[Rfam]
RNA sequence: UCCAUCUUGCGCGACUGGCGAAGUCAGUGGGCACUACCACGAGGAAGCGCAAAGUUCUCUGGCGCGAUGUUUCAAGCGCCUGCCGCUCGCCUGGGCAGCGAAU
Numbered sequence: 001u002c003c004a005u006c007u008u009g010c011g012c013g014a015c016u017g018g019c020g021a022a023g024u025c026a027g028u029g030g031g032c033a034c035u036a037c038c039a040c041g042a043g044g045a046a047g048c049g050c051a052a053a054g055u056u057c058u059c060u061g062g063c064g065c066g067a068u069g070u071u072u073c074a075a076g077c078g079c080c081u082g083c084c085g086c087u088c089g090c091c092u093g094g095g096c097a098g099c100g101a102a103u
Stems, first nucleotide, its partner, number of pairs: 004055002007052006015044002017091005027040004080098005